Rfam assigns this 93-nucleotide RNA from Neptunicoccus cionae to the family "Rhodo-rpoB RNA".

RNA sequence: AAUUCGGGUGCGGAGGUUUGGGAACUUUUGCAAGAAUGGAAUUAUCUCGUGUUGAUGGGAUCAUGAUCAAUCGGUGCCCAACGAUUGUGACUG
Numbered sequence: 001a002a003u004u005c006g007g008g009u010g011c012g013g014a015g016g017u018u019u020g021g022g023a024a025c026u027u028u029u030g031c032a033a034g035a036a037u038g039g040a041a042u043u044a045u046c047u048c049g050u051g052u053u054g055a056u057g058g059g060a061u062c063a064u065g066a067u068c069a070a071u072c073g074g075u076g077c078c079c080a081a082c083g084a085u086u087g088u089g090a091c092u093g
Stems, first nucleotide, its partner, number of pairs: 001043005010031008064093002067090002069086005
Pairs were carried over by alignment from the consensus structure, which is taken from published work.
Rfam classes the family as a cis-regulatory element.
Lineage of the source: Bacteria > Pseudomonadati > Alphaproteobacteria > Paracoccaceae > Neptunicoccus.